[Rfam]
RNA sequence: ACAUGCUUGACUCCGCGUACGCCACACGAAAAAAUCAAUCUGUCGAUCAGAUUGUUGUUGUCCGGUGGCAUACAGGGAGCCAGGCAUGU
Number, nucleotide and partner (000 for none) at each position: 001a089002c088003a087004u086005g085006c084007u000008u082009g081010a000011c079012u078013c077014c076015g000016c000017g073018u072019a071020c000021g069022c068023c067024a066025c000026a000027c000028g062029a061030a000031a000032a000033a000034a000035u000036c000037a000038a000039u000040c000041u000042g000043u000044c000045g000046a000047u000048c000049a000050g000051a000052u000053u000054g000055u000056u000057g000058u000059u000060g000061u029062c028063c000064g000065g000066u024067g023068g022069c021070a000071u019072a018073c017074a000075g000076g014077g013078a012079g011080c000081c009082a008083g000084g006085c005086a004087u003088g002089u001

The record is an 89-nucleotide RNA from Striga asiatica, which matches "mir-160 microRNA precursor family" in Rfam. The family has 7 seed sequences and 1,502 matches in Rfam 15.1. For this family Rfam cites "Prediction of plant microRNA targets" (Rhoades et al., Cell, 2002). Rfam links the family to the GO terms miRNA-mediated post-transcriptional gene silencing and RISC complex.